[Rfam]
RNA sequence: GAUUUCGUCGAUUCGGUCGCAGCAUUCAAGGCGGUUGACACUUUCAGAAAGAAAAAGAAAAGGAUUGGAGGAAAGGAUGUAAAUAAUAAUAAGUUUAGAUAUAGACCGGAGAGAUACGCCGGUCAGGAUUCGUUAAAUUAUAAAGAAGAAAAUG
Numbered sequence: 001g002a003u004u005u006c007g008u009c010g011a012u013u014c015g016g017u018c019g020c021a022g023c024a025u026u027c028a029a030g031g032c033g034g035u036u037g038a039c040a041c042u043u044u045c046a047g048a049a050a051g052a053a054a055a056a057g058a059a060a061a062g063g064a065u066u067g068g069a070g071g072a073a074a075g076g077a078u079g080u081a082a083a084u085a086a087u088a089a090u091a092a093g094u095u096u097a098g099a100u101a102u103a104g105a106c107c108g109g110a111g112a113g114a115u116a117c118g119c120c121g122g123u124c125a126g127g128a129u130u131c132g133u134u135a136a137a138u139u140a141u142a143a144a145g146a147a148g149a150a151a152a153u154g
Base pairs, nucleotide, nucleotide: 025049026048027047030044031043034042036040084135085134086133087132089130093129094101102127104124105123106122107121108120109119
Tobamovirus internal ribosome entry site (IRES): a 154-nucleotide sequence from Tobamovirus youcai. From the family's description: This family represents the Tobamovirus internal ribosome entry site (IRES). IRES elements allow cap and end-independent translation of mRNA in the host cell. The IRES achieves this by mediating the internal initiation of translation by recruiting a ribosomal 43S pre-initiation complex directly to the initiation codon and eliminates the requirement for eIF4F.